Record summary
The record is an 85-nucleotide sequence from Photorhabdus laumondii, which matches "RpsF leader" in Rfam. The family's RNA type in Rfam is cis-regulatory leader. The match comes from Rfam's covariance-model search (100 bits). Rfam describes the family as follows. Conserved and widely distributed to many bacterial species RNA structure. The organism belongs to Photorhabdus laumondii subsp. laumondii, within Bacteria. On this family, see Babina et al., RNA 2015: "An S6:S18 complex inhibits translation of E. coli rpsF".
RNA sequence: GCCGCACUUAAACAAGUUCCUUGCCUCCACGGGCCGCGGUUGACCCUGACAGGAGGCUGAAUAAUCCGUAAGGAGCAAUUCUAAU
Numbered sequence: 001g002c003c004g005c006a007c008u009u010a011a012a013c014a015a016g017u018u019c020c021u022u023g024c025c026u027c028c029a030c031g032g033g034c035c036g037c038g039g040u041u042g043a044c045c046c047u048g049a050c051a052g053g054a055g056g057c058u059g060a061a062u063a064a065u066c067c068g069u070a071a072g073g074a075g076c077a078a079u080u081c082u083a084a085u
Base pairs, nucleotide, nucleotide: 016076017075018074019073020072021071022070023057024056025055026054027053028052031046032045033044